Overview: ZMP/ZTP riboswitch aptamer (pfl RNA motif): an 87-nucleotide RNA from Syntrophotalea acetylenivorans. Its family is annotated with regulation of purine nucleotide biosynthetic process and one-carbon metabolic process in the Gene Ontology. For this family Rfam cites "Recognition of the bacterial alarmone ZMP through long-distance association of two RNA subdomains" (Jones and Ferre-D'Amare, Nat Struct Mol Biol, 2015). The source organism's lineage runs through Bacteria, Thermodesulfobacteriota, Desulfuromonadia, Syntrophotaleaceae and Syntrophotalea.
RNA sequence: ACGGUCUUCUGCAACUGGCGCUAAGGUGGGUUUACCACCGGGGAGCAGACCUACAGACCACGACAGCCGUACGCCUGGGCACCUAUA
Dot-bracket structure: ..(....(((((..(([[[[.....((((.....))))..))..)))))....)...........(((...]]]]..))).......